[Rfam]
Shown here is a 73-nucleotide sequence from Propionibacterium australiense, a member of the family "tRNA". The match comes from Rfam's covariance-model search (63 bits). Pairs were carried over by alignment from the consensus structure, which is taken from published work. Transfer RNA (tRNA) molecules are approximately 80 nucleotides in length.

RNA sequence: GUGGAUGUAGCUCAGUUGGCAGAGCCCCUGGUUGUGGUCCAGGUGGUCGCGAGUUCAAGUCUCGUCAUCCACC
Number, nucleotide and partner (000 for none) at each position: 001g072002u071003g070004g069005a068006u067007g066008u000009a000010g025011c024012u023013c022014a000015g000016u000017u000018g000019g000020c000021a000022g013023a012024g011025c010026c000027c043028c042029u041030g040031g039032u000033u000034g000035u000036g000037g000038u000039c031040c030041a029042g028043g027044u000045g000046g000047u000048c000049g065050c064051g063052a062053g061054u000055u000056c000057a000058a000059g000060u000061c053062u052063c051064g050065u049066c007067a006068u005069c004070c003071a002072c001073c000